[Rfam]
RNA sequence: GCACCGGUAAUUUAACGGUAGAAUCCUCGUCUUCCACACGAGCCACUCGGGUUCGACUCCCGGCUGGUGCA
Numbered sequence: 001g002c003a004c005c006g007g008u009a010a011u012u013u014a015a016c017g018g019u020a021g022a023a024u025c026c027u028c029g030u031c032u033u034c035c036a037c038a039c040g041a042g043c044c045a046c047u048c049g050g051g052u053u054c055g056a057c058u059c060c061c062g063g064c065u066g067g068u069g070c071a
Stems, first nucleotide, its partner, number of pairs: 001070007010024004026042005047063005
Dot-bracket structure: (((((((..((((.......)))).(((((.......)))))....(((((.......)))))))))))).